[Rfam]
RNA: FMN riboswitch aptamer (RFN element)
Organism: Microcella frigidaquae
RNA sequence: AACGUGUUCCGGGGUCGGUGAAAAUCCGAGCCGGCGGUGACAGCCCGCUACCCGCGACCGAAGCGAUUCGGAGACGGUGGAACCGGUGGAAUUCCGGUGCCGACGGUGAAAGUCCGGAUGGGAGGAGCACGCU
Numbered sequence: 001a002a003c004g005u006g007u008u009c010c011g012g013g014g015u016c017g018g019u020g021a022a023a024a025u026c027c028g029a030g031c032c033g034g035c036g037g038u039g040a041c042a043g044c045c046c047g048c049u050a051c052c053c054g055c056g057a058c059c060g061a062a063g064c065g066a067u068u069c070g071g072a073g074a075c076g077g078u079g080g081a082a083c084c085g086g087u088g089g090a091a092u093u094c095c096g097g098u099g100c101c102g103a104c105g106g107u108g109a110a111a112g113u114c115c116g117g118a119u120g121g122g123a124g125g126a127g128c129a130c131g132c133u
Stems, first nucleotide, its partner, number of pairs: 003131008016028003030113002032102002034048004043100002052077002082098005104116003